[Rfam]
RNA sequence: CAGCGGGUGCAAGUCCCAGCCGGGGUAAGAGCCAGGUCGCCCCGUAGAUGGCAGCGGUCGUUGGGAGAGAUCCCAGCGGCUAAGCGCUGCGACAAGCCUUCGGGGGCAGGAGGAACCGGAGGCGCGACCGGUCGGGCCGCAACAUGA
Numbered sequence: 001c002a003g004c005g006g007g008u009g010c011a012a013g014u015c016c017c018a019g020c021c022g023g024g025g026u027a028a029g030a031g032c033c034a035g036g037u038c039g040c041c042c043c044g045u046a047g048a049u050g051g052c053a054g055c056g057g058u059c060g061u062u063g064g065g066a067g068a069g070a071u072c073c074c075a076g077c078g079g080c081u082a083a084g085c086g087c088u089g090c091g092a093c094a095a096g097c098c099u100u101c102g103g104g105g106g107c108a109g110g111a112g113g114a115a116c117c118g119g120a121g122g123c124g125c126g127a128c129c130g131g132u133c134g135g136g137c138c139g140c141a142a143c144a145u146g147a
Stems, first nucleotide, its partner, number of pairs: 021044005051090005056081006065072002097122006124140003

Overview
The family of this 147-nucleotide RNA sequence is "Group II catalytic intron D1-D4-4". Group II introns are found in rRNA, tRNA and mRNA of organelles in fungi, plants and protists, and also in mRNA in bacteria. Rfam's curators put it in the seed alignment. A reference for the family is Bonen and Vogel (2001), "The ins and outs of group II introns", Trends Genet.